[Rfam]
RNA sequence: AAUACCCAAAACAAUGAAAGCCCUACCUCUCUUCCAUCCUUACGAUUCCUUGAUCGUGCCAGUGUGAAUCAGGUUCAUAUCGAAUCG
Numbered sequence: 001a002a003u004a005c006c007c008a009a010a011a012c013a014a015u016g017a018a019a020g021c022c023c024u025a026c027c028u029c030u031c032u033u034c035c036a037u038c039c040u041u042a043c044g045a046u047u048c049c050u051u052g053a054u055c056g057u058g059c060c061a062g063u064g065u066g067a068a069u070c071a072g073g074u075u076c077a078u079a080u081c082g083a084a085u086c087g
Stems, first nucleotide, its partner, number of pairs: 035066002039062002041058007